[Rfam]
Overview
A member of the RNA family "Streptomyces RNA 6106" from Streptomyces sulfonofaciens, 85 nucleotides long. From the family's description: Identified by deep sequencing of transcriptome at the end of exponential growth phase. Appears smaller on northern blot than sequencing transcript. This indicates processing step. A reference for the family is Vockenhuber et al. (2011), "Deep sequencing-based identification of small non-coding RNAs in Streptomyces coelicolor", RNA Biol. The source organism's lineage runs through Bacteria, Bacillati, Actinomycetota, Kitasatosporales and Streptomyces. The pairing is the family consensus, mapped onto this sequence. The match comes from Rfam's covariance-model search (54 bits).
RNA sequence: AUGCCGCCCCGGCGGCAGUCGGGCACCCUCGCGGAAGCCCGAACGCGGGGGUGGUGCCGUGUCGGCGCGGCACCACCCCCGUGCG
Numbered sequence: 001a002u003g004c005c006g007c008c009c010c011g012g013c014g015g016c017a018g019u020c021g022g023g024c025a026c027c028c029u030c031g032c033g034g035a036a037g038c039c040c041g042a043a044c045g046c047g048g049g050g051g052u053g054g055u056g057c058c059g060u061g062u063c064g065g066c067g068c069g070g071c072a073c074c075a076c077c078c079c080c081g082u083g084c085g
Base pairs, nucleotide, nucleotide: 002017003016004015005014006013007012019042020041021040022039023038024037026034027033045082046081047080048079049078050077051076052075053074054073055072056071057070059068060067061066